The family of this 335-nucleotide RNA sequence from Lachnotalea sp. AF33-28 is "Bacterial RNase P class A".
RNA sequence: UGAGCAGGACAAAUGAUCGCGGCUGGCAACAGACGAGGAAAGUCCGGGCUUCACAGGGCAGGAUGCCGGAUAACGUCCGGUGGAGGCGACUCCAAGGAUAGUGCAACAGAAAUAUACCGCCGGCCCCGGCCGGUAAGGUUGGAAGGGCAGUGUAAGAGACUACCGCCCGCCUGGUAACAGGCGGGGCAUAUGUAAACCCCAUCCGAAGCAAGACUAACAGAAGGCAUAAGGCGGCCCGUCUGCCUUCGGGUAAGUCGCUUGAGCCUGCCGGUGACGGCAGGCCUAGAUAGAUGAUCAUUCAAUGACAGAACCCGGCUUAUCGUCCUGCUCUUCCC
Numbered sequence: 001u002g003a004g005c006a007g008g009a010c011a012a013a014u015g016a017u018c019g020c021g022g023c024u025g026g027c028a029a030c031a032g033a034c035g036a037g038g039a040a041a042g043u044c045c046g047g048g049c050u051u052c053a054c055a056g057g058g059c060a061g062g063a064u065g066c067c068g069g070a071u072a073a074c075g076u077c078c079g080g081u082g083g084a085g086g087c088g089a090c091u092c093c094a095a096g097g098a099u100a101g102u103g104c105a106a107c108a109g110a111a112a113u114a115u116a117c118c119g120c121c122g123g124c125c126c127c128g129g130c131c132g133g134u135a136a137g138g139u140u141g142g143a144a145g146g147g148c149a150g151u152g153u154a155a156g157a158g159a160c161u162a163c164c165g166c167c168c169g170c171c172u173g174g175u176a177a178c179a180g181g182c183g184g185g186g187c188a189u190a191u192g193u194a195a196a197c198c199c200c201a202u203c204c205g206a207a208g209c210a211a212g213a214c215u216a217a218c219a220g221a222a223g224g225c226a227u228a229a230g231g232c233g234g235c236c237c238g239u240c241u242g243c244c245u246u247c248g249g250g251u252a253a254g255u256c257g258c259u260u261g262a263g264c265c266u267g268c269c270g271g272u273g274a275c276g277g278c279a280g281g282c283c284u285a286g287a288u289a290g291a292u293g294a295u296c297a298u299u300c301a302a303u304g305a306c307a308g309a310a311c312c313c314g315g316c317u318u319a320u321c322g323u324c325c326u327g328c329u330c331u332u333c334c335c
Stems, first nucleotide, its partner, number of pairs: 002330009011320001012299007020035002023032003040318003044315005049208004056237004061204005066080005081095001082093004096199002101197002103193003117138002119134006146164002149161003165187001166185008212256004220247006229241004263282008
The match comes from Rfam's covariance-model search (311 bits).